[Rfam]
This 110-nucleotide RNA sequence from Striga hermonthica belongs to the Rfam family "Small nucleolar RNA snoR97". By type it is an H/ACA-box small nucleolar RNA. A search with the family's covariance model found it, with a score of 43 bits. Rfam links the family to the GO terms RNA processing and nucleolus. The literature on the family includes a 2002 paper in Curr Biol by Marker et al., "Experimental RNomics: identification of 140 candidates for small non-messenger RNAs in the plant Arabidopsis thaliana". The base pairs follow the family's consensus structure, which was predicted with WAR.
RNA sequence: CAUGAUUAGUAGGCGACUCUUCUUAAUAACUAAUAUAUUUUUGUGUUGUCAUUAACUUCAUCUCUAGAAUAUUUUCAAAGGAAUUGAAGUUAGAUUUCAACAUUGUAUGU
Numbered sequence: 001c002a003u004g005a006u007u008a009g010u011a012g013g014c015g016a017c018u019c020u021u022c023u024u025a026a027u028a029a030c031u032a033a034u035a036u037a038u039u040u041u042u043g044u045g046u047u048g049u050c051a052u053u054a055a056c057u058u059c060a061u062c063u064c065u066a067g068a069a070u071a072u073u074u075u076c077a078a079a080g081g082a083a084u085u086g087a088a089g090u091u092a093g094a095u096u097u098c099a100a101c102a103u104u105g106u107a108u109g110u
Stems, first nucleotide, its partner, number of pairs: 043103006054091006061083001063081002